[Rfam]
RNA sequence: CUGCAACGAUGACAAUAUUUUUUUCUCAAUGGCAGUUCACCGAGUGAAUGUUUAUGCUUUGAGUUUGAGAGA
Numbered sequence: 001c002u003g004c005a006a007c008g009a010u011g012a013c014a015a016u017a018u019u020u021u022u023u024u025c026u027c028a029a030u031g032g033c034a035g036u037u038c039a040c041c042g043a044g045u046g047a048a049u050g051u052u053u054a055u056g057c058u059u060u061g062a063g064u065u066u067g068a069g070a071g072a
Stems, first nucleotide, its partner, number of pairs: 002071001004069001008027002011024001
RNA: Small nucleolar RNA SNORD56